[Rfam]
Description:
Rfam assigns this 86-nucleotide RNA sequence from Stenotrophomonas sp. BIIR7 to the family "sRNA-Xcc1". The family's RNA type in Rfam is small RNA.

RNA sequence: GUCGGGAGGGCGGCUAAUACAAGACCCUUCACGGGGAAUAUGCCCGCCGUAUGACUUGCACGGUUUUGACCUCCCGACGCCCUCGC
Number, nucleotide and partner (000 for none) at each position: 001g078002u077003c076004g075005g074006g073007a072008g071009g070010g000011c000012g044013g043014c042015u040016a039017a000018u000019a000020c000021a000022a000023g000024a000025c035026c034027c033028u000029u000030c000031a000032c000033g027034g026035g025036g000037a000038a000039u016040a015041u000042g014043c013044c012045c000046g064047c063048c062049g061050u060051a000052u000053g000054a000055c000056u000057u000058g000059c000060a050061c049062g048063g047064u046065u000066u000067u000068g000069a000070c009071c008072u007073c006074c005075c004076g003077a002078c001079g000080c000081c000082c000083u000084c000085g000086c000